[Rfam]
RNA sequence: AAUUUGUUAGCCAAACUUGUCGUGAGGCAAGGACGGAAAACCACGGGUCUUUGAGCGGUUUUGAAGACAGCCGGGUUGCAUUGC
Numbered sequence: 001a002a003u004u005u006g007u008u009a010g011c012c013a014a015a016c017u018u019g020u021c022g023u024g025a026g027g028c029a030a031g032g033a034c035g036g037a038a039a040a041c042c043a044c045g046g047g048u049c050u051u052u053g054a055g056c057g058g059u060u061u062u063g064a065a066g067a068c069a070g071c072c073g074g075g076u077u078g079c080a081u082u083g084c
Stems, first nucleotide, its partner, number of pairs: 004080001011036002016031006034070001039077004044073003047068007
RNA: c-di-GMP-I-GGC riboswitch aptamer
Organism: Methylophaga lonarensis